[Rfam]
RNA sequence: AGCCUUUCUUUGCGCGGGAGCUCGACCCGCGACUGCCGUGGUGAUCAGUUUCAUCGCCGAUCACAAGCUGAGGUUCGGGGUCGAGCCGAUCUGCCGGGUGCUCACUGGGCAUGGCUGCAAGAUCGCCCCU
Numbered sequence: 001a002g003c004c005u006u007u008c009u010u011u012g013c014g015c016g017g018g019a020g021c022u023c024g025a026c027c028c029g030c031g032a033c034u035g036c037c038g039u040g041g042u043g044a045u046c047a048g049u050u051u052c053a054u055c056g057c058c059g060a061u062c063a064c065a066a067g068c069u070g071a072g073g074u075u076c077g078g079g080g081u082c083g084a085g086c087c088g089a090u091c092u093g094c095c096g097g098g099u100g101c102u103c104a105c106u107g108g109g110c111a112u113g114g115c116u117g118c119a120a121g122a123u124c125g126c127c128c129c130u
Stems, first nucleotide, its partner, number of pairs: 014030005077129004087125002090122003093118002096115001
RNA: ALIL pseudoknot
Organism: Tessaracoccus flavescens